[Rfam]
Overview: The record is a 55-nucleotide RNA sequence from Steroidobacter agaridevorans, which matches "nhaA-I RNA" in Rfam. It is annotated as a riboswitch. Acidobacteria, Alphaproteobacteria, Betaproteobacteria and Gammaproteobacteria, Verrucomicrobia, cand. division NC10. The family's consensus secondary structure is taken from published work. The organism belongs to Steroidobacter, within Bacteria.

RNA sequence: GGGUGUCGCCGAGCAAGGUCGCGCGACAGGUUGUUGCGUAGGUCGGGCCGCCGCG
Numbered sequence: 001g002g003g004u005g006u007c008g009c010c011g012a013g014c015a016a017g018g019u020c021g022c023g024c025g026a027c028a029g030g031u032u033g034u035u036g037c038g039u040a041g042g043u044c045g046g047g048c049c050g051c052c053g054c055g
Stems, first nucleotide, its partner, number of pairs: 005027005011022001037055003041052003